[Rfam]
RNA sequence: ACAACAUUCGGAUCGUCGGUCUACCAAUUUAAUAUCACCCGCUCGAUGGAAGAUCUUCCCUCCGUCGU
Number, nucleotide and partner (000 for none) at each position: 001a000002c000003a000004a065005c064006a000007u000008u000009c000010g059011g058012a057013u000014c000015g054016u053017c052018g000019g000020u050021c049022u048023a047024c000025c045026a000027a043028u000029u041030u000031a000032a000033u000034a000035u000036c000037a000038c000039c000040c000041g029042c000043u027044c000045g025046a000047u023048g022049g021050a020051a000052g017053a016054u015055c000056u000057u012058c011059c010060c000061u000062c000063c000064g005065u004066c000067g000068u000
Rfam assigns this 68-nucleotide RNA from Bombyx mori to the family "mir-2774 microRNA precursor family".
The base pairs follow the family's consensus structure, which was predicted with RNAalifold.
On this family, see Liu et al., BMC Genomics 2010: "MicroRNAs of Bombyx mori identified by Solexa sequencing".